[Rfam]
RNA sequence: AGAUGCCCAAAAGGUUAUACUAUUUCCAACACUAAAUGAUAGGGAUGUUGAGUUGGACGUGGGUGUUGAAAGCUUGCACUUGUGUAAGAAUCCUAAACACGUCCAUAGACGACCCACCUGAUAACAUCAGGGAAUAUCACUCCUUUUGGGUUUACC
Numbered sequence: 001a002g003a004u005g006c007c008c009a010a011a012a013g014g015u016u017a018u019a020c021u022a023u024u025u026c027c028a029a030c031a032c033u034a035a036a037u038g039a040u041a042g043g044g045a046u047g048u049u050g051a052g053u054u055g056g057a058c059g060u061g062g063g064u065g066u067u068g069a070a071a072g073c074u075u076g077c078a079c080u081u082g083u084g085u086a087a088g089a090a091u092c093c094u095a096a097a098c099a100c101g102u103c104c105a106u107a108g109a110c111g112a113c114c115c116a117c118c119u120g121a122u123a124a125c126a127u128c129a130g131g132g133a134a135u136a137u138c139a140c141u142c143c144u145u146u147u148g149g150g151u152u153u154a155c156c
Stems, first nucleotide, its partner, number of pairs: 001153004006149002021136007042115003046111004051106001053105001055104007068092002073088005